Shown here is a 123-nucleotide sequence from Cercocebus atys, a member of the family "Small nucleolar RNA SNORA40". Its family is annotated with RNA processing and nucleolus in the Gene Ontology. For this family Rfam cites "Mapping to nucleotide resolution of pseudouridine residues in large subunit ribosomal RNAs from representative eukaryotes, prokaryotes, archaebacteria, mitochondria and chloroplasts" (Ofengand and Bakin, J Mol Biol, 1997). Rfam classes the family as an H/ACA-box small nucleolar RNA. Taxonomically the source falls in Cercocebus (Eukaryota, Teleostomi, Mammalia, Primates). About the family: The snoRNA ACA 40 belongs to the H/ACA family of snoRNAs and guides the pseudouridylation of 28S rRNA subunit at position U4565. NB This family has a high threshold value to exclude a large number of closely related sequences that do not appear to have conserved H and ACA boxes, and may be pseudogenes.
RNA sequence: UGCACUUGCGUUUCUGUUUAACUUGUGAACAAGCCCUUAUAGACAAGUGCAAAAAAUAAAUCCUCUUUUGCAACCCAGAUCUCAUUGUUUAAUAAGAGUUUUGAUACACAUAAAAGAGAUAUU
Numbered sequence: 001u002g003c004a005c006u007u008g009c010g011u012u013u014c015u016g017u018u019u020a021a022c023u024u025g026u027g028a029a030c031a032a033g034c035c036c037u038u039a040u041a042g043a044c045a046a047g048u049g050c051a052a053a054a055a056a057u058a059a060a061u062c063c064u065c066u067u068u069u070g071c072a073a074c075c076c077a078g079a080u081c082u083c084a085u086u087g088u089u090u091a092a093u094a095a096g097a098g099u100u101u102u103g104a105u106a107c108a109c110a111u112a113a114a115a116g117a118g119a120u121a122u123u
Stems, first nucleotide, its partner, number of pairs: 001051008011041001015031003022027001060120003064116001066115005076103004081098003085094001